[Rfam]
RNA: mir-9195 microRNA precursor family
RNA sequence: AGAGGCCCUCUGCGGCUGGGGUGGGAUGCUUGCCUCGUCACCUCGGCGAUGAAGCAAGCAUUCCACCAGGCCGCUCACAUUGCCUGC
Number, nucleotide and partner (000 for none) at each position: 001a000002g000003a000004g084005g083006c082007c000008c000009u000010c000011u000012g074013c073014g072015g071016c070017u069018g000019g000020g067021g066022u065023g064024g063025g062026a061027u060028g059029c058030u057031u056032g055033c054034c000035u000036c000037g050038u049039c048040a000041c046042c000043u000044c000045g000046g041047c000048g039049a038050u037051g000052a000053a000054g033055c032056a031057a030058g029059c028060a027061u026062u025063c024064c023065a022066c021067c020068a000069g017070g016071c015072c014073g013074c012075u000076c000077a000078c000079a000080u000081u000082g006083c005084c004085u000086g000087c000